[Rfam]
A member of the RNA family "M-box riboswitch aptamer (ykoK leader)" from Clostridium tyrobutyricum, 167 nucleotides long.
RNA sequence: UAUUUUAUUUGUUAGGUGAGGCUCCUAUAUGAGAUAUAUGCUGCUGCCCAAAAAUAUCGAGAGAUGCCAAUGGGUUAACAGGUAUUGCCGAAUUAAGGUUCUACUUAAUGCAGCUGAGUUAUAACUCAACGCCAUAUAGUGCCAAAACUCCACGAAGAAUUCUGUAU
Dot-bracket structure: ......(.(((([.(((..(((..(((((((.(......(((((.(((((....((((....))))....))))).....((((..(((......])))..))))....))))).(((......)))....)))))))).)))...)))..))....)).)......

Lineage of the source: Bacteria > Clostridia > Clostridiaceae > Clostridium > Clostridium tyrobutyricum. The pairing is the family consensus, mapped onto this sequence.